This 77-nucleotide sequence belongs to the Rfam family "chrB-a RNA". The family's RNA type in Rfam is cis-regulatory element.
[Rfam]
RNA sequence: GGCAUGGGGAAAGCGAUCUCCCCACGAGGCGACAUGCCGAAGCAGUCGCGUCCCAUCCACACGGAGGACGCAUCAUG
Numbered sequence: 001g002g003c004a005u006g007g008g009g010a011a012a013g014c015g016a017u018c019u020c021c022c023c024a025c026g027a028g029g030c031g032a033c034a035u036g037c038c039g040a041a042g043c044a045g046u047c048g049c050g051u052c053c054c055a056u057c058c059a060c061a062c063g064g065a066g067g068a069c070g071c072a073u074c075a076u077g
Base pairs, nucleotide, nucleotide: 005024006023007022008021009020010019048071049070050069051068052067053066